Rfam assigns this 75-nucleotide RNA sequence to the family "RT-6 RNA". The family's consensus secondary structure is taken from published work. By type it is a small RNA.
RNA sequence: UGCCUCAUACGAAAGGUAUGAGGGAAGGAGAUUGUUGUCAACUGUUCUGCAAGAAUGUUCUCGAGAACAUCUAGC
Numbered sequence: 001u002g003c004c005u006c007a008u009a010c011g012a013a014a015g016g017u018a019u020g021a022g023g024g025a026a027g028g029a030g031a032u033u034g035u036u037g038u039c040a041a042c043u044g045u046u047c048u049g050c051a052a053g054a055a056u057g058u059u060c061u062c063g064a065g066a067a068c069a070u071c072u073a074g075c
Stems, first nucleotide, its partner, number of pairs: 003023008054070001057068004